[Rfam]
RNA sequence: UAGGUGGGUGUGGGCGAUCCCUUCGGGAUGUCCCUUACGCACGCGAUUGCCUCCGGAAUGGGUGGCAUUCGUACCGCUGGAGAUCUAGUGGCGCGGAUGC
Numbered sequence: 001u002a003g004g005u006g007g008g009u010g011u012g013g014g015c016g017a018u019c020c021c022u023u024c025g026g027g028a029u030g031u032c033c034c035u036u037a038c039g040c041a042c043g044c045g046a047u048u049g050c051c052u053c054c055g056g057a058a059u060g061g062g063u064g065g066c067a068u069u070c071g072u073a074c075c076g077c078u079g080g081a082g083a084u085c086u087a088g089u090g091g092c093g094c095g096g097a098u099g100c
Stems, first nucleotide, its partner, number of pairs: 007038001010035001012033005018026002074091004079086002
Source information: Pyrrolysine insertion sequence mtbB: a 100-nucleotide RNA. It is one of the family's seed sequences. The family has 23 seed sequences and 59 matches in Rfam 15.1. The literature on the family includes a 2013 paper in BMC Bioinformatics by Theil Have et al., "Effects of using coding potential, sequence conservation and mRNA structure conservation for predicting pyrroly-sine containing genes".